[Rfam]
Nucleotides: 104
Base pairs, nucleotide, nucleotide: 001044002043003042004041005040007038012034014032015031054072055071056070057069058068059067080099081098082097083096084095085094086093087092
Number, partner (000 for none) and nucleotide at each position: 001044a002043g003042c004041u005040g006000a007038g008000c009000a010000a011000a012034g013000c014032a015031g016000c017000c018000a019000c020000c021000u022000c023000u024000g025000g026000g027000u028000g029000g030000c031015c032014u033000c034012c035000c036000u037000u038007u039000u040005c041004a042003g043002c044001u045000g046000u047000u048000c049000c050000c051000c052000u053000c054072u055071g056070g057069a058068g059067g060000a061000u062000g063000a064000a065000c066000a067059u068058c069057u070056c071055c072054a073000c074000a075000c076000c077000u078000a079000u080099a081098g082097c083096a084095c085094c086093c087092g088000g089000c090000g091000a092087c093086g094085g095084g096083u097082g098081c099080u100000u101000u102000u103000u104000u
About this RNA:
The record is a 104-nucleotide RNA sequence from Rhizobium oryziradicis, which matches "Alphaproteobacterial ar15" in Rfam. Its family is annotated with protein binding in the Gene Ontology. It scores 46 bits against the family's covariance model. Its Rfam clan is "suhB sRNA clan". It is annotated as a small RNA.